[Rfam]
RNA sequence: UGCACUGUAUGGUAUUUGCACUCAACAGUUAUUCCUGUUGGUGUGUUCAAAAGACAGUGCCAUAGAAAUUCAGUAUCUGGCAUCGUUGGUUUUCAUGUCUUUGUGUAUGUUAAACCUGGUAUGUCUAUUGAUACAUUA
Numbered sequence: 001u002g003c004a005c006u007g008u009a010u011g012g013u014a015u016u017u018g019c020a021c022u023c024a025a026c027a028g029u030u031a032u033u034c035c036u037g038u039u040g041g042u043g044u045g046u047u048c049a050a051a052a053g054a055c056a057g058u059g060c061c062a063u064a065g066a067a068a069u070u071c072a073g074u075a076u077c078u079g080g081c082a083u084c085g086u087u088g089g090u091u092u093u094c095a096u097g098u099c100u101u102u103g104u105g106u107a108u109g110u111u112a113a114a115c116c117u118g119g120u121a122u123g124u125c126u127a128u129u130g131a132u133a134c135a136u137u138a
Base pairs, nucleotide, nucleotide: 002060003059004058005057006056007055015053016052017051018046019045020044021043023041024039025038026037027036028035063127064126065125066124068122069121070119071118072117073116080106081105082104083103

Shown here is a 138-nucleotide RNA from Octodon degus, a member of the family "Small nucleolar RNA SNORA8". ACA8 is a member of the H/ACA class of snoRNA that guide the sites of modification of uridines to pseudouridines. The family's RNA type in Rfam is H/ACA-box small nucleolar RNA.